[Rfam]
RNA: Group II catalytic intron D1-D4-3
RNA sequence: UCCACCGUGAGGUGGAAUCUGAAGGAAGUCGGCGGCAAAGCUCUGGUCUGAGGAAUACGAACUACAUAUGAGGCAUGCGUAAUGCUGGGUGAACUGGCCGAACAAAGUAAAGCCCAAAACUAUCCGAAGCAUACGGUGUAAAUGUAGCAGAUGUAUGGAGUGAAAGUAAACGCU
Numbered sequence: 001u002c003c004a005c006c007g008u009g010a011g012g013u014g015g016a017a018u019c020u021g022a023a024g025g026a027a028g029u030c031g032g033c034g035g036c037a038a039a040g041c042u043c044u045g046g047u048c049u050g051a052g053g054a055a056u057a058c059g060a061a062c063u064a065c066a067u068a069u070g071a072g073g074c075a076u077g078c079g080u081a082a083u084g085c086u087g088g089g090u091g092a093a094c095u096g097g098c099c100g101a102a103c104a105a106a107g108u109a110a111a112g113c114c115c116a117a118a119a120c121u122a123u124c125c126g127a128a129g130c131a132u133a134c135g136g137u138g139u140a141a142a143u144g145u146a147g148c149a150g151a152u153g154u155a156u157g158g159a160g161u162g163a164a165a166g167u168a169a170a171c172g173c174u
Base pairs, nucleotide, nucleotide: 001016002015003014004013005012006011028174030172031171035167036166040161041160042159043158044157045156046152047151048150049149050148062147063146064145065144066143067142073139074138075137078135079134080133082132083131084130085129087115088114089113090112093108094107095106